[Rfam]
RNA sequence: UGGACAGAUUGUUAUAUUCGAUUGUAUUCAUGGCGUGAAACAGGGUAUUACACUGUUUUUAAACGAAAAGUGAAUCAAUUAAAAAACAGACUCCU
Numbered sequence: 001u002g003g004a005c006a007g008a009u010u011g012u013u014a015u016a017u018u019c020g021a022u023u024g025u026a027u028u029c030a031u032g033g034c035g036u037g038a039a040a041c042a043g044g045g046u047a048u049u050a051c052a053c054u055g056u057u058u059u060u061a062a063a064c065g066a067a068a069a070g071u072g073a074a075u076c077a078a079u080u081a082a083a084a085a086a087c088a089g090a091c092u093c094c095u
Stems, first nucleotide, its partner, number of pairs: 002094003009089005015084001017082002020080002023077002026075006034065003037059007
RNA: MIR6152 microRNA precursor family